Annotation:
Small nucleolar RNA R16: an 84-nucleotide RNA from Carex littledalei. The family has 18 seed sequences and 884 matches in Rfam 15.1. The family's RNA type in Rfam is C/D-box small nucleolar RNA. Its family is annotated with nucleolus and RNA processing in the Gene Ontology. Pairs were carried over by alignment from the consensus structure, which was predicted with PFOLD. A search with the family's covariance model found it, with a score of 65 bits.

RNA sequence: AAAGGCAAUGAUGUGAAUUUCUUAUCCUACACACAGAAUAUAAAAUGUGUAGACAAAGUACUCUACUUAUUUACUGAUGCCUUC
Numbered sequence: 001a002a003a004g005g006c007a008a009u010g011a012u013g014u015g016a017a018u019u020u021c022u023u024a025u026c027c028u029a030c031a032c033a034c035a036g037a038a039u040a041u042a043a044a045a046u047g048u049g050u051a052g053a054c055a056a057a058g059u060a061c062u063c064u065a066c067u068u069a070u071u072u073a074c075u076g077a078u079g080c081c082u083u084c
Base pairs, nucleotide, nucleotide: 003082004081005080006079007078
Dot-bracket structure: ..(((((......................................................................)))))..